Rfam assigns this 167-nucleotide RNA from Eubacterium ventriosum to the family "Clostridiales-1 RNA". The base pairs follow the family's consensus structure, which is taken from published work. The family's RNA type in Rfam is small RNA. Rfam 15.1 lists 1,172 matches to the family in 137 species.

RNA sequence: ACUCACCAACCCCCGGAACUUUCAAGGCACCUGUGCUUGCACAAAGGUGCCUUGAAAAGUUUCGGGGGUGCCUUAUUAUGAGCAUAAAAGGGCGACGAAGUCGCACGAUAUGCGAAUAAUAAGGACAGAUUGCGGGAGCGGGAAGCGCGUAGCAAUCUGAGGUGAGU
Numbered sequence: 001a002c003u004c005a006c007c008a009a010c011c012c013c014c015g016g017a018a019c020u021u022u023c024a025a026g027g028c029a030c031c032u033g034u035g036c037u038u039g040c041a042c043a044a045a046g047g048u049g050c051c052u053u054g055a056a057a058a059g060u061u062u063c064g065g066g067g068g069u070g071c072c073u074u075a076u077u078a079u080g081a082g083c084a085u086a087a088a089a090g091g092g093c094g095a096c097g098a099a100g101u102c103g104c105a106c107g108a109u110a111u112g113c114g115a116a117u118a119a120u121a122a123g124g125a126c127a128g129a130u131u132g133c134g135g136g137a138g139c140g141g142g143a144a145g146c147g148c149g150u151a152g153c154a155a156u157c158u159g160a161g162g163u164g165a166g167u
Stems, first nucleotide, its partner, number of pairs: 001167005011067004017061003020057012032043004072123008082113004092104002095101002127158007138148003